A member of the RNA family "Lysine riboswitch aptamer" from Clostridium paraputrificum, 165 nucleotides long.
Pairs were carried over by alignment from the consensus structure, which is taken from published work.
Taxonomically the source falls in Clostridium (Bacteria, Clostridia, Eubacteriales, Clostridiaceae).
It scores 96 bits against the family's covariance model.
[Rfam]
RNA sequence: GCCUAGGGUAGAGGUGCCAAAGCAAAUAGUAGUUAAUCAGAGUCGGCAGAUGAAGAAGAUUAAUGAAAGGUGUUAGGCCGAAGAGAUAGCAUUUGCAGAUGCUUUUUCUGGUUAUAUAUAGAAUAUAUAUAUAACUGUCACAAAGUGUGAUGAGCUACAAGGUAC
Numbered sequence: 001g002c003c004u005a006g007g008g009u010a011g012a013g014g015u016g017c018c019a020a021a022g023c024a025a026a027u028a029g030u031a032g033u034u035a036a037u038c039a040g041a042g043u044c045g046g047c048a049g050a051u052g053a054a055g056a057a058g059a060u061u062a063a064u065g066a067a068a069g070g071u072g073u074u075a076g077g078c079c080g081a082a083g084a085g086a087u088a089g090c091a092u093u094u095g096c097a098g099a100u101g102c103u104u105u106u107u108c109u110g111g112u113u114a115u116a117u118a119u120a121g122a123a124u125a126u127a128u129a130u131a132u133a134a135c136u137g138u139c140a141c142a143a144a145g146u147g148u149g150a151u152g153a154g155c156u157a158c159a160a161g162g163u164a165c
Base pairs, nucleotide, nucleotide: 008158009157010156011155016078017077018076020074022073023072024071032064033063034062035061036060037059038058082109083108084107085106086105088103089102090101091100092099093098110136111135112134113133114132115131116130117129118128119127120126138150139149140148141147142146